The family of this 133-nucleotide RNA sequence from Proteus penneri is "Bacterial antisense RNA HPnc0260". The family's consensus secondary structure was predicted with CMfinder.
RNA sequence: UUUUUAAACGUUUUGUUGCGCAAUAAAAUAUUGCAAGCAAAAUUAAUUAUUUUGUAGGGUAGGUAAGAUGAGUAAAAAUUAGGAAAAAGAGAAAUGGUGCGUCCAAGUGGACUCGAACCACCGACCCCCACCA
Numbered sequence: 001u002u003u004u005u006a007a008a009c010g011u012u013u014u015g016u017u018g019c020g021c022a023a024u025a026a027a028a029u030a031u032u033g034c035a036a037g038c039a040a041a042a043u044u045a046a047u048u049a050u051u052u053u054g055u056a057g058g059g060u061a062g063g064u065a066a067g068a069u070g071a072g073u074a075a076a077a078a079u080u081a082g083g084a085a086a087a088a089g090a091g092a093a094a095u096g097g098u099g100c101g102u103c104c105a106a107g108u109g110g111a112c113u114c115g116a117a118c119c120a121c122c123g124a125c126c127c128c129c130a131c132c133a
Base pairs, nucleotide, nucleotide: 024045025044026043031040032039062073064071095130096129097128099126104123107121108120109119110118